The record is a 149-nucleotide sequence from Virgibacillus necropolis, which matches "Ribosomal protein L10 leader" in Rfam. From the family's description: This family is a putative r-protein leader autoregulatory structure found in B. subtilis and other low-GC Gram-positive bacteria. It is located in the 5' untranslated regions of mRNAs encoding ribosomal proteins L10 and L12 (rplJ-rplL). The family's RNA type in Rfam is cis-regulatory leader. The base pairs follow the family's consensus structure, which was predicted with CMfinder. Taxonomically the source falls in Virgibacillus (Bacteria, Bacillati, Bacillota, Bacillaceae). Gene Ontology term of the family: regulation of gene expression.

RNA sequence: AAAUAUGAAUACGUUGUACCGUAGACAGUAGGUGCGAGAAAUCGCUUAAUUUCCUGCCGAGGUGUUUAAAAAGCAAAUUAGAUAAAUCGUUAAGAUUAUCAUUUGUAUAAAAAACCUCCAUGUCUGCAUGGGGGUUUUCUUAUGGUUUA
Numbered sequence: 001a002a003a004u005a006u007g008a009a010u011a012c013g014u015u016g017u018a019c020c021g022u023a024g025a026c027a028g029u030a031g032g033u034g035c036g037a038g039a040a041a042u043c044g045c046u047u048a049a050u051u052u053c054c055u056g057c058c059g060a061g062g063u064g065u066u067u068a069a070a071a072a073g074c075a076a077a078u079u080a081g082a083u084a085a086a087u088c089g090u091u092a093a094g095a096u097u098a099u100c101a102u103u104u105g106u107a108u109a110a111a112a113a114a115c116c117u118c119c120a121u122g123u124c125u126g127c128a129u130g131g132g133g134g135u136u137u138u139c140u141u142a143u144g145g146u147u148u149a
Stems, first nucleotide, its partner, number of pairs: 028057005034045003114135009